RNA sequence: GAUCCAUUAGCUCAGCUGGGAGAGCGUCUGGGUGACAACCAGAAGGUCACUGGUUCAAGUCCAGUAUGGGUCA
Numbered sequence: 001g002a003u004c005c006a007u008u009a010g011c012u013c014a015g016c017u018g019g020g021a022g023a024g025c026g027u028c029u030g031g032g033u034g035a036c037a038a039c040c041a042g043a044a045g046g047u048c049a050c051u052g053g054u055u056c057a058a059g060u061c062c063a064g065u066a067u068g069g070g071u072c073a
Stems, first nucleotide, its partner, number of pairs: 001072007010025004027043005049065005
Dot-bracket structure: (((((((..((((........)))).(((((.......))))).....(((((.......)))))))))))).
The family of this 73-nucleotide sequence from Hornefia porci is "tRNA". Its family is annotated with triplet codon-amino acid adaptor activity in the Gene Ontology.